[Rfam]
RNA sequence: UUUCAGACACGGGAUUUUGGGGGCGAGGUGAGUUUGUAUUUAAUCCAACUGGCCCGCAAAGUCCCGUUUCUGUGU
Numbered sequence: 001u002u003u004c005a006g007a008c009a010c011g012g013g014a015u016u017u018u019g020g021g022g023g024c025g026a027g028g029u030g031a032g033u034u035u036g037u038a039u040u041u042a043a044u045c046c047a048a049c050u051g052g053c054c055c056g057c058a059a060a061g062u063c064c065c066g067u068u069u070c071u072g073u074g075u
Stems, first nucleotide, its partner, number of pairs: 004072004010066004015061005021055004026050002029047002
Dot-bracket structure: ...((((..((((.(((((.((((.((.((...............)).)).)))).))))).))))..))))...
Rfam assigns this 75-nucleotide sequence from Acipenser ruthenus to the family "mir-193 microRNA precursor family". Gene Ontology terms of the family: RISC complex and miRNA-mediated post-transcriptional gene silencing. The source organism's lineage runs through Eukaryota, Opisthokonta, Bilateria, Chondrostei and Acipenser. A search with the family's covariance model found it, with a score of 71 bits. Rfam 15.1 lists 1,158 matches to the family in 646 species.